[Rfam]
RNA sequence: CUACGACCACACGGGGGCCCUUGCAGGGGCUGAGAUCAGGCUGACGCAGCCUGCGACCGUCGAACCUGUCCGGGUAAUGCCGGCGAAGGAAGUGAGUACUCAAUUGAG
Numbered sequence: 001c002u003a004c005g006a007c008c009a010c011a012c013g014g015g016g017g018c019c020c021u022u023g024c025a026g027g028g029g030c031u032g033a034g035a036u037c038a039g040g041c042u043g044a045c046g047c048a049g050c051c052u053g054c055g056a057c058c059g060u061c062g063a064a065c066c067u068g069u070c071c072g073g074g075u076a077a078u079g080c081c082g083g084c085g086a087a088g089g090a091a092g093u094g095a096g097u098a099c100u101c102a103a104u105u106g107a108g
Stems, first nucleotide, its partner, number of pairs: 008094003011060004016054001017030005037053007065089003070083004